[Rfam]
RNA: c-di-AMP riboswitch aptamer (ydaO/yuaA leader)
RNA sequence: CGGCAACCAUCGCCGAAUCCCCGUCGAGGGGAGCCGGGGACCCACCCUUCCGCGAGGGAUGCGGAAGGAGGCCCUCUUCCGAGGCAUCCGGGGUGAAUCGGGCCUGCCCGCCCGUAGGAGACCUUCCUGCUCCGAACCCGUCAGCUAACCCGGUAGGCGACACGGAAGGAAAGG
Number, nucleotide and partner (000 for none) at each position: 001c000002g000003g000004c000005a000006a000007c000008c000009a000010u000011c159012g158013c157014c156015g000016a000017a000018u032019c031020c030021c029022c028023g000024u000025c000026g000027a000028g022029g021030g020031g019032a018033g154034c153035c152036g151037g150038g149039g000040a000041c000042c000043c090044a000045c000046c000047c000048u000049u000050c000051c000052g000053c000054g000055a000056g000057g000058g000059a000060u000061g000062c000063g000064g000065a000066a000067g000068g000069a000070g000071g000072c000073c000074c000075u000076c000077u000078u000079c000080c000081g000082a000083g000084g000085c000086a000087u000088c000089c000090g043091g139092g138093g137094u000095g000096a000097a000098u000099c114100g113101g112102g111103c000104c000105u000106g000107c000108c000109c000110g000111c102112c101113c100114g099115u000116a000117g133118g132119a131120g130121a000122c000123c000124u000125u000126c000127c000128u000129g000130c120131u119132c118133c117134g000135a000136a000137c093138c092139c091140g000141u000142c000143a000144g000145c000146u000147a000148a000149c038150c037151c036152g035153g034154u033155a000156g014157g013158c012159g011160a000161c000162a000163c000164g000165g000166a000167a000168g000169g000170a000171a000172a000173g000174g000